[Rfam]
Nucleotides: 076
Base pairs, nucleotide, nucleotide: 014043015042016041017040020076021075022074023073025071026070027039028038029037048065049064050063051062053060054059
Number, partner (000 for none) and nucleotide at each position: 001000g002000u003000c004000g005000g006000a007000a008000g009000u010000u011000u012000g013000a014043g015042g016041c017040c018000a019000u020076a021075g022074c023073a024000c025071a026070a027039g028038u029037g030000c031000u032000c033000a034000c035000a036000g037029c038028a039027u040017g041016g042015c043014c044000a045000u046000g047000u048065c049064a050063g051062a052000u053060u054059c055000a056000a057000a058000a059054g060053a061000u062051u063050c064049u065048g066000c067000a068000a069000a070026u071025u072000c073023u074022g075021c076020u